skipping-rope RNA: an 86-nucleotide RNA. The sequence is in the family's curated seed alignment. By type it is a small RNA.
RNA sequence: AGAAGCAGAGGACGGAACGGGCAGCCGUCGCCGGAGGGUCGCAAGACCCGAGUAGGAGAUGCAGGAAUCGCCACCCUGCCUAUUCU
Numbered sequence: 001a002g003a004a005g006c007a008g009a010g011g012a013c014g015g016a017a018c019g020g021g022c023a024g025c026c027g028u029c030g031c032c033g034g035a036g037g038g039u040c041g042c043a044a045g046a047c048c049c050g051a052g053u054a055g056g057a058g059a060u061g062c063a064g065g066a067a068u069c070g071c072c073a074c075c076c077u078g079c080c081u082a083u084u085c086u
Stems, first nucleotide, its partner, number of pairs: 001086004007081002011029005020072003031056001036049004061079005